Rfam assigns this 353-nucleotide part of an RNA from Desulfovibrio lacusfryxellense to the family "Bacterial small subunit ribosomal RNA".
Gene Ontology terms of the family: structural constituent of ribosome and ribosome.
Lineage of the source: Bacteria > Thermodesulfobacteriota > Desulfovibrionia > Desulfovibrionales > Desulfovibrio.
For this family Rfam cites "The comparative RNA web (CRW) site: an online database of comparative sequence and structure information for ribosomal, intron, and other RNAs" (Cannone et al., BMC Bioinformatics, 2002).
The sequence is in the family's curated seed alignment.
Nucleotides: 353
Stems, first nucleotide, its partner, number of pairs: 001316003009313001011198004016192001018191003022085007030078002032074009046062006089185003093180003100174007107151001111147008122133003159166002203244006212238002217233004255312006263290011294301002318345003327338004
Number, partner (000 for none) and nucleotide at each position: 001316g002315g003314c004000g005000u006000a007000a008000a009313g010000c011198g012197c013196g014195c015000g016192u017000a018191g019190g020189c021000g022085g023084c024083g025082a026081u027080g028079u029000a030078a031077g032074u033073c034072a035071g036070a037069u038068g039067u040066g041000a042000a043000a044000g045000c046062c047061c048060u049059c050058g051057g052000c053000u054000c055000a056000a057051c058050c059049g060048g061047g062046g063000a064000a065000u066040u067039g068038c069037a070036u071035u072034u073033g074032a075000u076000a077031c078030u079028g080027c081026a082025u083024u084023g085022c086000u087000u088000g089185a090184g091183u092000a093180u094179c095178g096000g097000a098000g099000a100174g101173g102172g103171u104170g105169g106168c107151g108000g109000a110000a111147u112146u113145c114144c115143a116142g117141g118140u119000g120000u121000a122133g123132g124131a125000g126000u127000g128000a129000a130000a131124u132123c133122c134000g135000u136000a137000g138000a139000u140118a141117u142116c143115u144114g145113g146112a147111g148000g149000a150000a151107c152000a153000u154000c155000a156000g157000u158000g159166g160165c161000g162000a163000a164000g165160g166159c167000g168106g169105c170104c171103a172102c173101c174100u175000g176000g177000a178095c179094g180093a181000a182000u183091a184090c185089u186000g187000a188000c189020g190019c191018u192016g193000a194000g195014g196013u197012g198011c199000g200000a201000a202000a203244g204243c205242g206241u207240g208239g209000g210000g211000a212238g213237c214000a215000a216000a217233c218232a219231g220230g221000a222000u223000u224000a225000g226000a227000u228000a229000c230220c231219c232218u233217g234000g235000u236000a237213g238212u239208c240207c241206a242205c243204g244203c245000c246000g247000u248000a249000a250000a251000c252000g253000a254000u255312g256311g257310a258309u259308g260307c261000u262000a263290g264289a265288u266287g267286u268285c269284g270283g271282g272281c273280c274000u275000u276000a277000a278000c279000c280273g281272g282271u283270u284269c285268g286267g287266u288265a289264u290263c291000g292000a293000a294301g295300u296000u297000a298000a299000c300295g301294c302000g303000a304000u305000a306000a307260g308259c309258a310257u311256c312255c313009c314003g315002c316001c317000u318345g319344g320343g321000g322000a323000g324000u325000a326000c327338g328337g329336u330335c331000g332000c333000a334000a335330g336329g337328c338327u339000g340000a341000a342000a343320c344319u345318c346000a347000a348000a349000g350000g351000a352000a353000u